A member of the RNA family "tRNA" from Parolsenella catena, 73 nucleotides long.
NCBI's taxonomy places the organism under Bacteria, Actinomycetota, Coriobacteriales, Atopobiaceae, Parolsenella.
A search with the family's covariance model found it, with a score of 70 bits.
The family's RNA type in Rfam is transfer RNA.
The base pairs follow the family's consensus structure, which is taken from published work.
[Rfam]
RNA sequence: GCGGACAUGGCUCAGUUGGUAGAGCACCACCUUGCCAAGGUGGGGGUCGCGGGUUCGAGCCCCGUUGUCCGCU
Numbered sequence: 001g002c003g004g005a006c007a008u009g010g011c012u013c014a015g016u017u018g019g020u021a022g023a024g025c026a027c028c029a030c031c032u033u034g035c036c037a038a039g040g041u042g043g044g045g046g047u048c049g050c051g052g053g054u055u056c057g058a059g060c061c062c063c064g065u066u067g068u069c070c071g072c073u
Base pairs, nucleotide, nucleotide: 001072002071003070004069005068006067007066010025011024012023013022027043028042029041030040031039049065050064051063052062053061